[Rfam]
RNA sequence: UAAGGAGCACACCAUGCAAUAUGCCAUUGCAGGGUGGCCUGUUGCUGGCUGCCCUUCCG
Numbered sequence: 001u002a003a004g005g006a007g008c009a010c011a012c013c014a015u016g017c018a019a020u021a022u023g024c025c026a027u028u029g030c031a032g033g034g035u036g037g038c039c040u041g042u043u044g045c046u047g048g049c050u051g052c053c054c055u056u057c058c059g
Base pairs, nucleotide, nucleotide: 004054005053007052008051009050012048013047014046016045017044018043019042020041021040023038024037025036026035027034028033